A member of the RNA family "mir-130 microRNA precursor family" from Stegastes partitus, 79 nucleotides long. The family's consensus secondary structure was predicted with PFOLD. Rfam 15.1 lists 2,580 matches to the family in 658 species. On this family, see Lagos-Quintana et al., Curr Biol 2002: "Identification of tissue-specific microRNAs from mouse". NCBI's taxonomy places the organism under Eukaryota, Opisthokonta, Metazoa, Deuterostomia, Stegastes.

[Rfam]
RNA sequence: UGUCAUCCGAAGCCCUUUUUAUGUUGUACUACUGUGAAAUCAGAUGAGCAGUGCAAUAUUAAAAGGGCAUUGGCUGACA
Numbered sequence: 001u002g003u004c005a006u007c008c009g010a011a012g013c014c015c016u017u018u019u020u021a022u023g024u025u026g027u028a029c030u031a032c033u034g035u036g037a038a039a040u041c042a043g044a045u046g047a048g049c050a051g052u053g054c055a056a057u058a059u060u061a062a063a064a065g066g067g068c069a070u071u072g073g074c075u076g077a078c079a
Base pairs, nucleotide, nucleotide: 001079002078003077005075007073008072009071010070012068013067014066015065016064017063018062019061022058023057024056025055026054027053028052029051030050
Dot-bracket structure: (((.(.((((.((((((((..(((((((((...................)))))))))..)))))))).)))).).)))